[Rfam]
The record is a 131-nucleotide sequence from Callorhinus ursinus, which matches "U4 spliceosomal RNA" in Rfam. By type it is a spliceosomal small nuclear RNA. Lineage of the source: Eukaryota > Deuterostomia > Boreoeutheria > Carnivora > Callorhinus. Rfam describes the family as follows. U4 small nuclear RNA (U4 snRNA) is a component of the major U2-dependent spliceosome.
RNA sequence: AGCUUUGCGCAGUGGCAGUAUCGUAGCCAAUGAGGUUUAUCCAAGGUGCGAUUAUUGCUAACGUGGCUAGUCCAAAUUGAGUUGUGCCAUAAGGAUCCACAACAGAUUUUGAAGACUUAGCACACAGAAAG
Numbered sequence: 001a002g003c004u005u006u007g008c009g010c011a012g013u014g015g016c017a018g019u020a021u022c023g024u025a026g027c028c029a030a031u032g033a034g035g036u037u038u039a040u041c042c043a044a045g046g047u048g049c050g051a052u053u054a055u056u057g058c059u060a061a062c063g064u065g066g067c068u069a070g071u072c073c074a075a076a077u078u079g080a081g082u083u084g085u086g087c088c089a090u091a092a093g094g095a096u097c098c099a100c101a102a103c104a105g106a107u108u109u110u111g112a113a114g115a116c117u118u119a120g121c122a123c124a125c126a127g128a129a130a131g
Stems, first nucleotide, its partner, number of pairs: 020052005026047003034042002081103006087094002116131003